[Rfam]
RNA sequence: AAAUUCGAGUAAUCGCUGCAACUCAUUACGAAGUUGUAGAGGAAAGUCCAUGCUCACACGGCUCUGAGAUGACCGUAGUGUUCGUGCUUACUGAAAAAAUAAGGUAAGGCAAGGCUCGCCUUGACGGCGGAAGGAAAACCUAAGUCUUUUGAUAUGGUUGACACUUCCUGAAAGUGCCACAGUGACGUAGCUUCAUUGGAAACAGUGAAGGUGGAACGAGGUAAACCCCACGAGUGAGAAACCCAAAUUAUGGUAGGGGCACUCUCCUGAAGGAAAUGAACGGAUGGAGGGACGAAAGAUUUCUUUCGUAGAUAGAUGAUUACUACCCGCUUUGUACGAGGUUUUUAACCGUUUGAGUACUCGGGAACAAAACAUGGCUUAUGAA
Numbered sequence: 001a002a003a004u005u006c007g008a009g010u011a012a013u014c015g016c017u018g019c020a021a022c023u024c025a026u027u028a029c030g031a032a033g034u035u036g037u038a039g040a041g042g043a044a045a046g047u048c049c050a051u052g053c054u055c056a057c058a059c060g061g062c063u064c065u066g067a068g069a070u071g072a073c074c075g076u077a078g079u080g081u082u083c084g085u086g087c088u089u090a091c092u093g094a095a096a097a098a099a100u101a102a103g104g105u106a107a108g109g110c111a112a113g114g115c116u117c118g119c120c121u122u123g124a125c126g127g128c129g130g131a132a133g134g135a136a137a138a139c140c141u142a143a144g145u146c147u148u149u150u151g152a153u154a155u156g157g158u159u160g161a162c163a164c165u166u167c168c169u170g171a172a173a174g175u176g177c178c179a180c181a182g183u184g185a186c187g188u189a190g191c192u193u194c195a196u197u198g199g200a201a202a203c204a205g206u207g208a209a210g211g212u213g214g215a216a217c218g219a220g221g222u223a224a225a226c227c228c229c230a231c232g233a234g235u236g237a238g239a240a241a242c243c244c245a246a247a248u249u250a251u252g253g254u255a256g257g258g259g260c261a262c263u264c265u266c267c268u269g270a271a272g273g274a275a276a277u278g279a280a281c282g283g284a285u286g287g288a289g290g291g292a293c294g295a296a297a298g299a300u301u302u303c304u305u306u307c308g309u310a311g312a313u314a315g316a317u318g319a320u321u322a323c324u325a326c327c328c329g330c331u332u333u334g335u336a337c338g339a340g341g342u343u344u345u346u347a348a349c350c351g352u353u354u355g356a357g358u359a360c361u362c363g364g365g366a367a368c369a370a371a372a373c374a375u376g377g378c379u380u381a382u383g384a385a
Base pairs, nucleotide, nucleotide: 004385005384006383007382008324009323010322011321012320013319014318016039017038018037019036020035021034022033023032044380045379046378048377049376050375051374052373053238054237055236056235057234058076059075060074061073063072064071082233083232084231085230086229087108088107089106090105091104092103109125110123111122112121113120114119126228127227129168130167131166132165137159138158139157140156144153145152146151174226175225176222177221178220191210192209193208194207195206196205197204198203242258243257244256262291263290264289265288266287267286292309293308294307295306296305297304326365327364328363329362
RNA: Bacterial RNase P class B
Organism: Lysinibacillus telephonicus